[Rfam]
RNA: MIR6274 microRNA precursor family
Organism: Prunus yedoensis
RNA sequence: GGAUAACAUUAUUUUGUUAUCUCCGACCAAUCAUGCUAUGCCAAAUGAAAAAGUUAUCACAUGUGACAUAGCGUGAUUGGCCGGAGAUAGCAAAAUAAUGGUAUCC
Dot-bracket structure: .((((......(((((((((.((((.((((((((((((((.((.(((..(......)..))).)).)))))))))))))).)))).)))))))))......)))).